Shown here is a 46-nucleotide sequence from Nothoprocta perdicaria, a member of the family "Histone 3' UTR stem-loop". The organism belongs to Nothoprocta, within Eukaryota. Rfam describes the family as follows. The mRNAs of metazoan histone genes lack a poly-A tail. 3' end processing occurs at a site between a highly conserved stem-loop (modelled by this family) and a purine rich region around 20 nts downstream (the histone downstream element, or HDE). A reference for the family is Williams and Marzluff (1995), "The sequence of the stem and flanking sequences at the 3' end of histone mRNA are critical determinants for the binding of the stem-loop binding protein", Nucleic Acids Res.

RNA sequence: CCAAAGGCUCUUUUAAGAGCCACCCACUUUCUCAGUUAAAGAGCUG
Number, nucleotide and partner (000 for none) at each position: 001c000002c000003a000004a000005a000006g021007g020008c019009u018010c017011u016012u000013u000014u000015a000016a011017g010018a009019g008020c007021c006022a000023c000024c000025c000026a000027c000028u000029u000030u000031c000032u000033c000034a000035g000036u000037u000038a000039a000040a000041g000042a000043g000044c000045u000046g000